[Rfam]
RNA sequence: AAGAAAGUGAGGAUACAUUUUAUUAGUGUAUCUCUUCAUUGAGGAAGAGCAUUGAGGUAUAUUGAAAGCAAAGGCUGAGAUAUCGUUUCAGUCGUCAUUUUCCUUAAUUGACGAUUUGAUUGUUGCUCAUCCACAU
Numbered sequence: 001a002a003g004a005a006a007g008u009g010a011g012g013a014u015a016c017a018u019u020u021u022a023u024u025a026g027u028g029u030a031u032c033u034c035u036u037c038a039u040u041g042a043g044g045a046a047g048a049g050c051a052u053u054g055a056g057g058u059a060u061a062u063u064g065a066a067a068g069c070a071a072a073g074g075c076u077g078a079g080a081u082a083u084c085g086u087u088u089c090a091g092u093c094g095u096c097a098u099u100u101u102c103c104u105u106a107a108u109u110g111a112c113g114a115u116u117u118g119a120u121u122g123u124u125g126c127u128c129a130u131c132c133a134c135a136u
Stems, first nucleotide, its partner, number of pairs: 006040006012032006073132002076129004082120004091115007099107002